[Rfam]
RNA: mir-9223 microRNA precursor family
RNA sequence: GGCAGUUCUCGGGUGACACACCCAGGGAUUGUGCUUCCUCCUCUGUGGUUUCGGGUGUGUCACCUGAGAACUACA
Numbered sequence: 001g002g003c004a005g006u007u008c009u010c011g012g013g014u015g016a017c018a019c020a021c022c023c024a025g026g027g028a029u030u031g032u033g034c035u036u037c038c039u040c041c042u043c044u045g046u047g048g049u050u051u052c053g054g055g056u057g058u059g060u061c062a063c064c065u066g067a068g069a070a071c072u073a074c075a
Stems, first nucleotide, its partner, number of pairs: 002074001005071013019057005025052009